[Rfam]
Shown here is a 184-nucleotide RNA from Paenibacillus larvae, a member of the family "Group II catalytic intron D1-D4-5". The family has 139 seed sequences and 720 matches in Rfam 15.1.
RNA sequence: CCUAACUGUAUAACCAAAGAUCGGAAUGACGGAACCAUGUUUCCCGAAACGAUCUCGUCAAUACUCCUGCGUGCGUUAUGGGUGACAGCUCUUAGGGUUCGAAGACAGGUGGAGUCGGCAGAAAGAGGCUAUAGCCACUCAGAAAGAGAAAGGUAUGCCUACUGAUAUGCCGGGCGGCUGAAAA
Dot-bracket structure: .................((((((.......((.(.......).))....))))))((((......((((((.((.(((.((((....)))).))).)).))....))))......(((((...((((((....(.....).....(..(....).))))).))....)))))))))........
Group II introns are found in rRNA, tRNA and mRNA of organelles in fungi, plants and protists, and also in mRNA in bacteria. Rfam's curators put it in the seed alignment.